[Rfam]
RNA: c-di-AMP riboswitch aptamer (ydaO/yuaA leader)
RNA sequence: UCAUUCAAAAUGACAAAGAGAUGAAUCUGAAACGGAGGAACCAUUCCUUGGGGCGAAUUUUGAAAAAGAUAAAGCGAUGAGAGAUAGACAAAACUGAAUUUAACCGUCGUCGCUCUGACCUUGAGAUUUAAUGCUUUAGCCUUUUCAAAAGGGGCACCUCUCAGCCCUAGCCCGUCAGCUAACUCCGUCGGCAGUGAGGGGAGACUGA
Number, nucleotide and partner (000 for none) at each position: 001u190002c000003a000004u031005u030006c029007a000008a000009a000010a000011u000012g000013a000014c000015a000016a000017a000018g000019a000020g000021a000022u000023g000024a000025a000026u000027c000028u000029g006030a005031a004032a188033c187034g186035g185036a184037g183038g000039a000040a000041c000042c050043a049044u000045u000046c000047c000048u000049u043050g042051g173052g172053g171054c000055g000056a000057a000058u000059u149060u148061u147062g146063a145064a144065a143066a142067a000068g000069a000070u000071a000072a000073a000074g000075c000076g000077a000078u000079g000080a000081g000082a000083g000084a000085u000086a000087g000088a000089c000090a000091a000092a000093a000094c000095u000096g000097a000098a000099u000100u000101u000102a000103a000104c000105c000106g000107u000108c000109g000110u000111c000112g000113c000114u000115c000116u000117g000118a000119c000120c000121u000122u000123g000124a000125g000126a000127u000128u000129u000130a000131a000132u000133g000134c000135u000136u000137u000138a000139g000140c000141c000142u066143u065144u064145u063146c062147a061148a060149a059150a000151g000152g167153g166154g165155c164156a000157c000158c000159u000160c000161u000162c000163a000164g155165c154166c153167c152168u000169a000170g000171c053172c052173c051174g000175u000176c000177a000178g000179c000180u000181a000182a000183c037184u036185c035186c034187g033188u032189c000190g001191g000192c000193a000194g000195u000196g000197a000198g000199g000200g000201g000202a000203g000204a000205c000206u000207g000208a000